The family of this 52-nucleotide RNA sequence from Lentivirus humimdef1 is "HIV Ribosomal frameshift signal". The base pairs follow the family's consensus structure, which is taken from published work. By type it is a frameshift element. The source organism's lineage runs through Viruses, Pararnavirae, Revtraviricetes, Ortervirales and Lentivirus humimdef1. This family represents the HIV Ribosomal frameshift signal.
[Rfam]
RNA sequence: UUUUUUAGGGAGAAUGUGGCCUUCCAGCAAAGGAAGGCCGGGGAAUUUUCUU
Numbered sequence: 001u002u003u004u005u006u007a008g009g010g011a012g013a014a015u016g017u018g019g020c021c022u023u024c025c026a027g028c029a030a031a032g033g034a035a036g037g038c039c040g041g042g043g044a045a046u047u048u049u050c051u052u
Stems, first nucleotide, its partner, number of pairs: 008052007015042001017040009